RNA sequence: CGGGCGAACUGUGGUUAAGGAACUCGGCAAAUUGCCCCCGUAACUUAGGGAGAAGGGGGGCCGGAGACGUGAAGCCCCGCGCGGGUGGAGCGUUGUAUGGCCGCAGAGAGCAGGGGGAAGCGACUGUUUACUAAAAACACAGGUCCAUGCGAAGAAGUAAUUCGAUGUAUAUGGACUGACGCCUGCCCGGUGCUGGAACGUUAAGGGGACCUGUUAGCUCUUCGGGGCGAAGCGGAGAACUUAAGCGCCAGUAAACGGCGGUGGUAACUAUAACCAUCCUAAGGUAGCGAAAUUCCUUGUCGGGUAAGUUCCGACCUGCACGAAUGGCGUAACGACUUCCCCACUGUCUCAACCACAGGCCCG
Number, nucleotide and partner (000 for none) at each position: 001c363002g362003g361004g360005c000006g000007a000008a000009c358010u357011g356012u355013g354014g353015u352016u351017a000018a349019g348020g347021a000022a000023c000024u000025c000026g000027g000028c000029a000030a000031a000032u000033u000034g000035c059036c058037c057038c056039c055040g000041u000042a000043a000044c049045u000046u000047a000048g000049g044050g000051a000052g000053a000054a000055g039056g038057g037058g036059g035060g101061c100062c099063g098064g000065a096066g000067a000068c000069g000070u000071g000072a000073a000074g000075c090076c000077c088078c087079g086080c085081g000082c000083g000084g000085g080086u079087g078088g077089a000090g075091c000092g000093u000094u000095g000096u065097a000098u063099g062100g061101c060102c106103g000104c000105a000106g102107a000108g000109a000110g000111c000112a000113g000114g342115g341116g340117g339118a338119a337120g336121c334122g333123a000124c000125u139126g138127u137128u000129u000130a000131c000132u000133a000134a000135a000136a000137a127138c126139a125140c000141a000142g177143g176144u175145c174146c173147a172148u171149g170150c167151g000152a000153a000154g163155a162156a161157g000158u000159a000160a000161u156162u155163c154164g000165a000166u000167g150168u000169a000170u149171a148172u147173g146174g145175a144176c143177u142178g000179a000180c329181g328182c327183c326184u000185g259186c258187c257188c000189g000190g256191u255192g252193c251194u250195g249196g248197a000198a000199c247200g246201u245202u000203a000204a000205g241206g240207g000208g000209a000210c000211c235212u234213g233214u232215u000216a000217g228218c227219u226220c225221u000222u000223c000224g000225g220226g219227g218228c217229g000230a000231a000232g214233c213234g212235g211236a000237g000238a000239a000240c206241u205242u000243a000244a000245g201246c200247g199248c196249c195250a194251g193252u192253a000254a000255a191256c190257g187258g186259c185260g278261g277262u276263g275264g274265u273266a000267a000268c000269u000270a000271u000272a000273a265274c264275c263276a262277u261278c260279c283280u000281a000282a000283g279284g000285u000286a000287g000288c000289g316290a000291a000292a000293u000294u000295c000296c000297u000298u000299g315300u314301c313302g312303g311304g310305u000306a000307a000308g000309u000310u304311c303312c302313g301314a300315c299316c289317u000318g000319c000320a000321c000322g000323a000324a000325u000326g183327g182328c181329g180330u000331a000332a000333c122334g121335a000336c120337u119338u118339c117340c116341c115342c114343a000344c000345u000346g000347u020348c019349u018350c000351a016352a015353c014354c013355a012356c011357a010358g009359g000360c004361c003362c002363g001
Bacterial large subunit ribosomal RNA: a 363-nucleotide part of an RNA from Micromonospora inyonensis. The organism belongs to Micromonospora, within Bacteria.